[Rfam]
RNA sequence: AGUUUGUAGACGAAAGAUGUAGAUGCGAAACUGCAAAGUACCAACUUCUUGACAAACCUAGAACGGCCUGAGGUAGAGGGGUUUUAAUCGGUAGAUCUGAGGAAUUCUUCCUCGGGAAUCCGACACUACCCAGUCGUGCGGACGGCUGGGUGUCUUUUGAAGAUUUCCUCUCUUCCACGAAA
Numbered sequence: 001a002g003u004u005u006g007u008a009g010a011c012g013a014a015a016g017a018u019g020u021a022g023a024u025g026c027g028a029a030a031c032u033g034c035a036a037a038g039u040a041c042c043a044a045c046u047u048c049u050u051g052a053c054a055a056a057c058c059u060a061g062a063a064c065g066g067c068c069u070g071a072g073g074u075a076g077a078g079g080g081g082u083u084u085u086a087a088u089c090g091g092u093a094g095a096u097c098u099g100a101g102g103a104a105u106u107c108u109u110c111c112u113c114g115g116g117a118a119u120c121c122g123a124c125a126c127u128a129c130c131c132a133g134u135c136g137u138g139c140g141g142a143c144g145g146c147u148g149g150g151u152g153u154c155u156u157u158u159g160a161a162g163a164u165u166u167c168c169u170c171u172c173u174u175c176c177a178c179g180a181a182a
Base pairs, nucleotide, nucleotide: 046181047180048179050177072176073175075173076172078169079168080167088123089122090121091120096116097115098114099113100112101111102110103109104108126152128151129150130149131148132147
Background:
The family of this 182-nucleotide RNA from Agrilus planipennis is "R2 RNA element". The family's RNA type in Rfam is cis-regulatory element. The organism belongs to Agrilus, within Eukaryota. Rfam's curators write: This family represents the 3' UTR region of the R2 retrotransposable element. It scores 39 bits against the family's covariance model.